[Rfam]
RNA sequence: ACCGGCCUGCGAAUGGCACUAGAAGAAUUCACGGGGUUCACCUGCCUUCCCGUGGUCUCCCAGUGCCAUCCCCAGAGCCAG
Numbered sequence: 001a002c003c004g005g006c007c008u009g010c011g012a013a014u015g016g017c018a019c020u021a022g023a024a025g026a027a028u029u030c031a032c033g034g035g036g037u038u039c040a041c042c043u044g045c046c047u048u049c050c051c052g053u054g055g056u057c058u059c060c061c062a063g064u065g066c067c068a069u070c071c072c073c074a075g076a077g078c079c080a081g
Stems, first nucleotide, its partner, number of pairs: 004078001007075003013069006020062001022060001023058001025057002029055006